[Rfam]
c-di-AMP riboswitch aptamer (ydaO/yuaA leader): a 201-nucleotide sequence from Frankia sp. R43.

RNA sequence: UCGGGUGGCACGCCGAAUCCCGCCUCGCCCGGUGCUUCGACAUCCAGUAGGCGGGAGCGGGGGACCCAGGUUCCCGGGCGUCGUAGGCAGGCGUCCUCGGGGUGAAGCCGCAUAGUGCGGUCGACCUGUCACGCACUGUGUGGCCGGGCUUUUCCGGCUCGAACCCGACAGCUAACUUCGUAGGUGUGGGGAAGGGUUUUU
Numbered sequence: 001u002c003g004g005g006u007g008g009c010a011c012g013c014c015g016a017a018u019c020c021c022g023c024c025u026c027g028c029c030c031g032g033u034g035c036u037u038c039g040a041c042a043u044c045c046a047g048u049a050g051g052c053g054g055g056a057g058c059g060g061g062g063g064a065c066c067c068a069g070g071u072u073c074c075c076g077g078g079c080g081u082c083g084u085a086g087g088c089a090g091g092c093g094u095c096c097u098c099g100g101g102g103u104g105a106a107g108c109c110g111c112a113u114a115g116u117g118c119g120g121u122c123g124a125c126c127u128g129u130c131a132c133g134c135a136c137u138g139u140g141u142g143g144c145c146g147g148g149c150u151u152u153u154c155c156g157g158c159u160c161g162a163a164c165c166c167g168a169c170a171g172c173u174a175a176c177u178u179c180g181u182a183g184g185u186g187u188g189g190g191g192a193a194g195g196g197u198u199u200u201u
Base pairs, nucleotide, nucleotide: 011186012185013184014183018056019055020054021053022052023051024050025049057181058180059179060178061177062176067099100166101165102164108143109142110141111140112139113138114137115136116135117134118133119132146160147159148158149157
Overview: NCBI's taxonomy places the organism under Bacteria, Bacillati, Actinomycetes, Frankiales, Frankia.